[Rfam]
RNA sequence: AAACAUUACAGCUCUUUUAGAAUUUGUCUCAGGUUUUCUGGUUCUCAUUGGAAAACCCCC
Numbered sequence: 001a002a003a004c005a006u007u008a009c010a011g012c013u014c015u016u017u018u019a020g021a022a023u024u025u026g027u028c029u030c031a032g033g034u035u036u037u038c039u040g041g042u043u044c045u046c047a048u049u050g051g052a053a054a055a056c057c058c059c060c
Stems, first nucleotide, its partner, number of pairs: 032057011
RNA: U7 small nuclear RNA
Organism: Gorilla gorilla